Shown here is an 86-nucleotide sequence from Acer saccharum, a member of the family "small nucleolar RNA snoR114". Pairs were carried over by alignment from the consensus structure, which was predicted with RNAalifold. Its family is annotated with nucleolus and RNA processing in the Gene Ontology. The literature on the family includes a 2009 paper in Nucleic Acids Res by Chen and Wu, "Mining small RNA sequencing data: a new approach to identify small nucleolar RNAs in Arabidopsis".
RNA sequence: GAGCUGUGAUGAUAUUUACACCUGUGAUGGUUGGGUCCAUAACGAUCGUCUCAUAAGUUAGAUGACACCUAGUGCUUUCUGAGCUC
Number, nucleotide and partner (000 for none) at each position: 001g086002a085003g084004c083005u000006g000007u000008g000009a000010u000011g000012a000013u000014a000015u000016u000017u000018a000019c000020a000021c000022c000023u000024g000025u000026g000027a000028u000029g000030g000031u000032u000033g000034g000035g000036u000037c000038c000039a000040u000041a000042a000043c000044g000045a000046u000047c000048g000049u000050c000051u000052c000053a000054u000055a000056a000057g000058u000059u000060a000061g000062a000063u000064g000065a000066c000067a000068c000069c000070u000071a000072g000073u000074g000075c000076u000077u000078u000079c000080u000081g000082a000083g004084c003085u002086c001